[Rfam]
RNA sequence: GACCCAAGUCCGAAUUGUCACCUGCGUUGGUGUGCGUUCCGCAAAGACGGAUAGGACUUGGGUUUUUU
Numbered sequence: 001g002a003c004c005c006a007a008g009u010c011c012g013a014a015u016u017g018u019c020a021c022c023u024g025c026g027u028u029g030g031u032g033u034g035c036g037u038u039c040c041g042c043a044a045a046g047a048c049g050g051a052u053a054g055g056a057c058u059u060g061g062g063u064u065u066u067u068u
Stems, first nucleotide, its partner, number of pairs: 001064011016036003019032004038051004

A member of the RNA family "DUF3800-IX RNA", 68 nucleotides long. Rfam describes the family as follows. Actinobacteria, Firmicutes (1 example), Nitrospirae, Proteobacteria, Verrucomicrobia (1 example). The sequence is in the family's curated seed alignment.